[Rfam]
RNA sequence: CACGAGAACCAUUUGAAUCACUACACUACUUGAUUCAAAUGGUUCUCACAAA
Numbered sequence: 001c002a003c004g005a006g007a008a009c010c011a012u013u014u015g016a017a018u019c020a021c022u023a024c025a026c027u028a029c030u031u032g033a034u035u036c037a038a039a040u041g042g043u044u045c046u047c048a049c050a051a052a
Stems, first nucleotide, its partner, number of pairs: 004047017

This 52-nucleotide sequence belongs to the Rfam family "Plastid-ccsA-ndhD-1 3UTR RNA". Rfam's curators write: Plastid-ccsA-ndhD-1 is a non-coding RNA (ncRNA) recognised in plastids. The family is grouped with related families in Rfam's "Plastid-ccsA_ndhD 3UTR RNA clan". Rfam classes the family as a cis-regulatory element.